RNA sequence: UGGUAAUUAGUUUAAGUAAAAUUAAUGAUUUCGACUCAUUAGAUUAUGAUAAUAGUCAUAAUUACCAA
Numbered sequence: 001u002g003g004u005a006a007u008u009a010g011u012u013u014a015a016g017u018a019a020a021a022u023u024a025a026u027g028a029u030u031u032c033g034a035c036u037c038a039u040u041a042g043a044u045u046a047u048g049a050u051a052a053u054a055g056u057c058a059u060a061a062u063u064a065c066c067a068a
Base pairs, nucleotide, nucleotide: 001067002066003065004064005063006062007061010022011021012020013019024040025039026038027037028036045060046059047058048057049056